[Rfam]
RNA sequence: GGGGGCGACCGGUUUCGACGGGGAGCGCGGUGGCAAAGGUAGCGGGUCGAGGUGCUGUGGCCUCGUUAAACUGCAGCAAGCACAUUAAGUGCCAAUAACAAUUACGCUUUAGCUGCUUAAUUUAAGUAGCCGUCCAAACCGAGCUUAACCUGGGAGGUCGGGGCGGGCGUCAAAUAAACCAGGACGCUCUUCAGCCAAUUCUCGGAGGCUGAGGCUAAGAUCAUCGAGAUAGCCAAGGCUUAGUUCGUCCGUAGACGGAGCGGCGGCGAAAUCUAAAAUGCGGUCUGCACCCGGAGAAGCUUUUGUGAUUGCCUUUUCGGACGGGGGUUCAACUCCCCCCGCCUCCACCA
Numbered sequence: 001g002g003g004g005g006c007g008a009c010c011g012g013u014u015u016c017g018a019c020g021g022g023g024a025g026c027g028c029g030g031u032g033g034c035a036a037a038g039g040u041a042g043c044g045g046g047u048c049g050a051g052g053u054g055c056u057g058u059g060g061c062c063u064c065g066u067u068a069a070a071c072u073g074c075a076g077c078a079a080g081c082a083c084a085u086u087a088a089g090u091g092c093c094a095a096u097a098a099c100a101a102u103u104a105c106g107c108u109u110u111a112g113c114u115g116c117u118u119a120a121u122u123u124a125a126g127u128a129g130c131c132g133u134c135c136a137a138a139c140c141g142a143g144c145u146u147a148a149c150c151u152g153g154g155a156g157g158u159c160g161g162g163g164c165g166g167g168c169g170u171c172a173a174a175u176a177a178a179c180c181a182g183g184a185c186g187c188u189c190u191u192c193a194g195c196c197a198a199u200u201c202u203c204g205g206a207g208g209c210u211g212a213g214g215c216u217a218a219g220a221u222c223a224u225c226g227a228g229a230u231a232g233c234c235a236a237g238g239c240u241u242a243g244u245u246c247g248u249c250c251g252u253a254g255a256c257g258g259a260g261c262g263g264c265g266g267c268g269a270a271a272u273c274u275a276a277a278a279u280g281c282g283g284u285c286u287g288c289a290c291c292c293g294g295a296g297a298a299g300c301u302u303u304u305g306u307g308a309u310u311g312c313c314u315u316u317u318c319g320g321a322c323g324g325g326g327g328u329u330c331a332a333c334u335c336c337c338c339c340c341g342c343c344u345c346c347a348c349c350a
Stems, first nucleotide, its partner, number of pairs: 001346007019319007031308001033306008043293005048065005053078007112130005131169005139161003143158004149183005189214008200229005232267003238261004243256003247285001249283002251279002323339005
Shown here is a 350-nucleotide sequence from Hydrogenispora ethanolica, a member of the family "transfer-messenger RNA". It scores 191 bits against the family's covariance model. Rfam classes the family as a non-coding RNA gene. On this family, see Williams and Bartel, RNA 1996: "Phylogenetic analysis of tmRNA secondary structure". The family is grouped with related families in Rfam's "tRNA clan".